The family of this 103-nucleotide sequence from Caldibacillus thermoamylovorans is "c-di-GMP-I riboswitch aptamer". The source organism's lineage runs through Bacteria, Bacillota, Caryophanales, Bacillaceae and Caldibacillus. The family's consensus secondary structure is taken from published work. GEMM was predicted in a large-scale screen for bacterial structured RNA regulatory elements. It scores 71 bits against the family's covariance model.
[Rfam]
RNA sequence: CAUGAUUAAAGGCAAAACCAUUGAAAAAUGGUGACGCAAAGCUUAAGGGACUAACGUGUGAAAGGAACUAGACCAAGUAACACUAUGUUUGCCAGCUGCCUAU
Numbered sequence: 001c002a003u004g005a006u007u008a009a010a011g012g013c014a015a016a017a018c019c020a021u022u023g024a025a026a027a028a029u030g031g032u033g034a035c036g037c038a039a040a041g042c043u044u045a046a047g048g049g050a051c052u053a054a055c056g057u058g059u060g061a062a063a064g065g066a067a068c069u070a071g072a073c074c075a076a077g078u079a080a081c082a083c084u085a086u087g088u089u090u091g092c093c094a095g096c097u098g099c100c101u102a103u
Stems, first nucleotide, its partner, number of pairs: 012037002017032006040097004047093002049089003056083004